[Rfam]
RNA: S10-Clostridia ribosomal protein leader
RNA sequence: GACUUGCGAUGAUGUGGGAGGUUGCUGACACACCCGGCCCCUUUGCCAUGGCUGGGGUUCAGGAUAUUUCCACGGAGAAAUGUCCGUUAUAAAAUGGGCGAAAA
Dot-bracket structure: .............(((.((((...((((..............................))))....))))))).......(.((.(((........))))).).